[Rfam]
RNA sequence: UUAUCAUCCAGAGUGGUGGAGGGAAAGGCCCUGUGAAGCCACGGCAACCGGUUCGUUUUUUUCAAACGAGCAACUGGUGCCAAUUCCUGCCCUGAAUCAAGGGAGAGAUGAGGA
Numbered sequence: 001u002u003a004u005c006a007u008c009c010a011g012a013g014u015g016g017u018g019g020a021g022g023g024a025a026a027g028g029c030c031c032u033g034u035g036a037a038g039c040c041a042c043g044g045c046a047a048c049c050g051g052u053u054c055g056u057u058u059u060u061u062u063c064a065a066a067c068g069a070g071c072a073a074c075u076g077g078u079g080c081c082a083a084u085u086c087c088u089g090c091c092c093u094g095a096a097u098c099a100a101g102g103g104a105g106a107g108a109u110g111a112g113g114a
Base pairs, nucleotide, nucleotide: 001114002113004111005110006109007108008107013042014041015040016039017038021031022030023029026088027087028086043081044080045079046078048077049076050075051074052073053072085106090103091102092101093100

Rfam assigns this 114-nucleotide sequence from Geoalkalibacter subterraneus to the family "SAM riboswitch aptamer (S box leader)". The base pairs follow the family's consensus structure, which is taken from published work. Rfam's curators write: The SAM riboswitch is found upstream of a number of genes which code for proteins involved in methionine or cysteine biosynthesis in Gram-positive bacteria.